ZMP/ZTP riboswitch aptamer (pfl RNA motif): an 81-nucleotide sequence from Paenibacillus solanacearum. Taxonomically the source falls in Paenibacillus (Bacteria, Bacillati, Bacillota, Bacilli). A search with the family's covariance model found it, with a score of 63 bits.

[Rfam]
RNA sequence: ACGGCCGUGUGUAACUGGCGGAACAUGGGGAACCAUGGGGGAGCACACGGAAUCCAUUUGCCGAACGCCUGGGCGAGUACU
Numbered sequence: 001a002c003g004g005c006c007g008u009g010u011g012u013a014a015c016u017g018g019c020g021g022a023a024c025a026u027g028g029g030g031a032a033c034c035a036u037g038g039g040g041g042a043g044c045a046c047a048c049g050g051a052a053u054c055c056a057u058u059u060g061c062c063g064a065a066c067g068c069c070u071g072g073g074c075g076a077g078u079a080c081u
Stems, first nucleotide, its partner, number of pairs: 005050008015040002017069004025036004058076005